[Rfam]
RNA sequence: GGAGCAGCUUCUGGAGAGACUGCAUGCAGGCAGCGCCGAAGGGUUCACAAUCUCAGGCACAUGGACAGAAGAAACCGA
Numbered sequence: 001g002g003a004g005c006a007g008c009u010u011c012u013g014g015a016g017a018g019a020c021u022g023c024a025u026g027c028a029g030g031c032a033g034c035g036c037c038g039a040a041g042g043g044u045u046c047a048c049a050a051u052c053u054c055a056g057g058c059a060c061a062u063g064g065a066c067a068g069a070a071g072a073a074a075c076c077g078a
Stems, first nucleotide, its partner, number of pairs: 008071006020033004035058003038054002042052003
Dot-bracket structure: .......((((((......((((......)))).(((((..(((.....))))).))).......)))))).......